[Rfam]
RNA sequence: AAUUCCCUUUUUGGUGUCUUGUGAUGAAACUGCAUAGGGCAGAUUCUGAGUUGAGAAAUAGAAUUUCUCUGCACUGAUUCUCUCUAUAUGCAAUCUGAAGACACUCUAUAUUGC
Numbered sequence: 001a002a003u004u005c006c007c008u009u010u011u012u013g014g015u016g017u018c019u020u021g022u023g024a025u026g027a028a029a030c031u032g033c034a035u036a037g038g039g040c041a042g043a044u045u046c047u048g049a050g051u052u053g054a055g056a057a058a059u060a061g062a063a064u065u066u067c068u069c070u071g072c073a074c075u076g077a078u079u080c081u082c083u084c085u086a087u088a089u090g091c092a093a094u095c096u097g098a099a100g101a102c103a104c105u106c107u108a109u110a111u112u113g114c
Stems, first nucleotide, its partner, number of pairs: 013105007029094001031092005037083003042078001045077002048074001050072002053069006
RNA: Small nucleolar RNA SNORD90